RNA sequence: AAAAUGAAGGGGGUGUGGGGGAACAUCCCCUGCCUCUUUAAAGGAGGAUGCUCAGAUUACGCUAGUAAUCGUCGAAAGGAAC
Numbered sequence: 001a002a003a004a005u006g007a008a009g010g011g012g013g014u015g016u017g018g019g020g021g022a023a024c025a026u027c028c029c030c031u032g033c034c035u036c037u038u039u040a041a042a043g044g045a046g047g048a049u050g051c052u053c054a055g056a057u058u059a060c061g062c063u064a065g066u067a068a069u070c071g072u073c074g075a076a077a078g079g080a081a082c
Base pairs, nucleotide, nucleotide: 015033016032017031018030019029020028021027022026055070056069057068058067059066
RNA: Clostridiales-2 RNA